[Rfam]
RNA sequence: GCUGAUUGCCAUUGAUUGUCAGCUUGGGAUGUGGCCCAACUAAAUAAAGAAAAAAAAGGGCUGAACUAGACA
Numbered sequence: 001g002c003u004g005a006u007u008g009c010c011a012u013u014g015a016u017u018g019u020c021a022g023c024u025u026g027g028g029a030u031g032u033g034g035c036c037c038a039a040c041u042a043a044a045u046a047a048a049g050a051a052a053a054a055a056a057a058g059g060g061c062u063g064a065a066c067u068a069g070a071c072a
Stems, first nucleotide, its partner, number of pairs: 001023005025068003033062005
The family of this 72-nucleotide sequence from Sylvia atricapilla is "eL15-Euryarchaeota ribosomal protein leader". The organism belongs to Sylvia, within Eukaryota. A reference for the family is Eckert and Weinberg (2020), "Discovery of 20 novel ribosomal leader candidates in bacteria and archaea", BMC Microbiol. The family's consensus secondary structure is taken from published work. The family's RNA type in Rfam is cis-regulatory leader.